[Rfam]
Shown here is a 205-nucleotide sequence from Pontibacter sp. SGAir0037, a member of the family "Group II catalytic intron D1-D4-3". The organism belongs to Pontibacter, within Bacteria. The pairing is the family consensus, mapped onto this sequence. Gene Ontology term of the family: Group II intron splicing.
RNA sequence: CUGGCCGUGAGGCGUGCAGUGAAGAAAGCGGGACUGCAAAAACCUGAACUGACGAAUACUCUUGAGCACGAGAGUGCGAAGAGAGCGCACGCAGUGCUGCAUAAGAGGCAGGAAGUCGUGGGUAAGCAAGCACAUCUUUGCAAAGCCCCUGGCCAACAAACGACUCUCGAGUAGAUGCAGCAGGAUUAGGUGGAAGGAGGGCAGC
Numbered sequence: 001c002u003g004g005c006c007g008u009g010a011g012g013c014g015u016g017c018a019g020u021g022a023a024g025a026a027a028g029c030g031g032g033a034c035u036g037c038a039a040a041a042a043c044c045u046g047a048a049c050u051g052a053c054g055a056a057u058a059c060u061c062u063u064g065a066g067c068a069c070g071a072g073a074g075u076g077c078g079a080a081g082a083g084a085g086c087g088c089a090c091g092c093a094g095u096g097c098u099g100c101a102u103a104a105g106a107g108g109c110a111g112g113a114a115g116u117c118g119u120g121g122g123u124a125a126g127c128a129a130g131c132a133c134a135u136c137u138u139u140g141c142a143a144a145g146c147c148c149c150u151g152g153c154c155a156a157c158a159a160a161c162g163a164c165u166c167u168c169g170a171g172u173a174g175a176u177g178c179a180g181c182a183g184g185a186u187u188a189g190g191u192g193g194a195a196g197g198a199g200g201g202c203a204g205c
Stems, first nucleotide, its partner, number of pairs: 001016001004013003028205002031202001037197001042191005049183003097180006108172002112168001114165006120148004126141004